Shown here is a 125-nucleotide RNA from Turicibacter sp. HGF1, a member of the family "Ribosomal protein L20 leader".

RNA sequence: UGUGGAAAGAAGAAGUACCCACUUCUCACCUGAUUGGCUUAAGUCGAUAGGUUUAAAAGUCGCAUAGUUUUUUUUAACUGUGAUUUUAAACGUGGGCGCUUGAAUGCCUACGUUUUUCUUUUUUU
Dot-bracket structure: ..........((((((....)))))).(((...(((((....)))))..)))....................................((((((((((......))))))))))...........

Overview:
The family's RNA type in Rfam is cis-regulatory leader. From the family's description: This family is a putative r-protein leader autoregulatory structure found in B. subtilis and other low-GC Gram-positive bacteria. On this family, see Zengel and Lindahl, Prog Nucleic Acid Res Mol Biol 1994: "Diverse mechanisms for regulating ribosomal protein synthesis in Escherichia coli".